[Rfam]
Nucleotides: 492
Base pairs, nucleotide, nucleotide: 001460002459003458004457010454011453012452013451014450015449016448018446019445020444035059036058037057038056039055044049060219061218063216064215065214066213067212068211069208070207071206072205073204075197076196077195078194079193080192081191084174085173086172090170091169099162100161101160102159103157104156105155108152109151110150111149112148113147116144117141118140119139120138122136123135124134125133126132127131220224231439232438233437234436235435236434237433238431239430242256243255244254259294260293261292262291263290264289265288266287270281271280272279273278298425299424300423302356303355304354307353308352309349310348311347312346314345317344318343319342325336326335327334328333357375358374359373360372361371362370376380396412397411398410399409400408473490474489475488476487477486
Number, partner (000 for none) and nucleotide at each position: 001460u002459a003458g004457a005000u006000c007000a008000a009000u010454g011453u012452a013451g014450g015449u016448a017000a018446g019445g020444g021000a022000a023000g024000u025000c026000g027000g028000c029000a030000a031000a032000u033000u034000a035059g036058a037057u038056c039055c040000g041000u042000a043000a044049c045000u046000u047000c048000g049044g050000g051000a052000u053000a054000a055039g056038g057037a058036u059035u060219g061218g062000c063216u064215c065214u066213g067212a068211a069208g070207g071206c072205u073204g074000g075197g076196a077195u078194g079193a080192c081191u082000c083000g084174g085173g086172c087000u088000c089000u090170g091169g092000u093000g094000c095000c096000u097000u098000c099162g100161c101160g102159g103157g104156u105155g106000c107000u108152u109151u110150g111149c112148c113147u114000c115000a116144a117141c118140g119139c120138g121000u122136g123135c124134g125133u126132g127131c128000g129000g130000u131127g132126u133125g134124c135123g136122c137000u138120c139119g140118u141117g142000g143000c144116u145000c146000c147113g148112g149111g150110u151109g152108g153000u154000u155105c156104g157103c158000g159102c160101c161100g162099c163000c164000c165000g166000g167000g168000u169091c170090c171000g172086g173085c174084c175000g176000c177000g178000c179000c180000g181000u182000g183000c184000c185000c186000g187000c188000u189000g190000c191081a192080g193079u194078c195077a196076u197075c198000a199000a200000u201000a202000a203000a204073c205072a206071g207070c208069c209000a210000a211068u212067u213066c214065a215064g216063a217000a218061c219060u220224g221000g222000c223000a224220c225000g226000g227000c228000u229000g230000a231439g232438g233437g234436a235435a236434u237433c238431c239430g240000a241000c242256u243255g244254u245000c246000u247000a248000a249000u250000u251000a252000a253000a254244a255243c256242a257000a258000a259294g260293c261292a262291u263290u264289g265288u266287g267000a268000u269000g270281g271280c272279c273278u274000c275000c276000g277000c278273a279272g280271g281270u282000g283000u284000u285000g286000a287266c288265a289264c290263a291262a292261u293260g294259u295000g296000a297000u298425u299424u300423c301000u302356g303355c304354c305000c306000a307353g308352u309349g310348c311347u312346c313000u314345g315000a316000a317344u318343g319342u320000c321000a322000a323000c324000g325336u326335g327334a328333a329000g330000a331000a332000a333328u334327u335326c336325a337000a338000g339000c340000a341000a342319g343318c344317g345314c346312g347311g348310g349309u350000a351000a352308a353307c354304g355303g356302c357375g358374g359373g360372a361371g362370u363000a364000a365000c366000u367000a368000u369000g370362a371361c372360u373359c374358u375357c376380u377000u378000a379000a380376g381000g382000u383000a384000g385000c386000c387000a388000a389000a390000u391000g392000c393000c394000u395000c396412g397411u398410c399409a400408u401000c402000u403000a404000a405000u406000u407000a408400g409399u410398g411397a412396c413000g414000c415000g416000c417000a418000u419000g420000a421000a422000u423300g424299g425298a426000u427000u428000a429000a430239c431238g432000a433237g434236a435235u436234u437233c438232c439231c440000u441000c442000u443000g444020u445019c446018c447000c448016u449015a450014u451013c452012u453011a454010c455000u456000a457004u458003c459002u460001a461000g462000c463000g464000a465000a466000a467000c468000c469000a470000c471000a472000g473490c474489c475488a476487a477486g478000g479000g480000a481000a482000c483000g484000g485000g486477c487476u488475u489474g490473g491000a492000a